[Rfam]
RNA sequence: UCGAGGUAAAAUAGUGAGUUGCUGACUUGGGGAAGUGAUCGACCCUUGGGAUAAGUUUAAAACUGCUUUUUUUAACCCCAGAAACUUUUUACCGUGGGUAAAAAGAACUUCUUGGGGUAAAAAAAACCAUAUUUAAAUUUAGCCCAAGGGUUUAUGAUGUAUUUUCCCCAAGAAGGCUGCUCACUAUUUUACCCCAU
Numbered sequence: 001u002c003g004a005g006g007u008a009a010a011a012u013a014g015u016g017a018g019u020u021g022c023u024g025a026c027u028u029g030g031g032g033a034a035g036u037g038a039u040c041g042a043c044c045c046u047u048g049g050g051a052u053a054a055g056u057u058u059a060a061a062a063c064u065g066c067u068u069u070u071u072u073u074a075a076c077c078c079c080a081g082a083a084a085c086u087u088u089u090u091a092c093c094g095u096g097g098g099u100a101a102a103a104a105g106a107a108c109u110u111c112u113u114g115g116g117g118u119a120a121a122a123a124a125a126a127c128c129a130u131a132u133u134u135a136a137a138u139u140u141a142g143c144c145c146a147a148g149g150g151u152u153u154a155u156g157a158u159g160u161a162u163u164u165u166c167c168c169c170a171a172g173a174a175g176g177c178u179g180c181u182c183a184c185u186a187u188u189u190u191a192c193c194c195c196a197u
Base pairs, nucleotide, nucleotide: 003195005193006192007191008190009189010188011187012186013185014184015183016182017181018180019179021177022176023175026172027171028170029169030168031167032166033165034164035163038158039157040156041155042151043150044149046147047146048145049144050143052141053140054139055138057136058135059134060133061132064129065128067126068125069124070123071122072121073120075118076117077116078115079114080113081112085105086104087103088102089101090100091099092098093097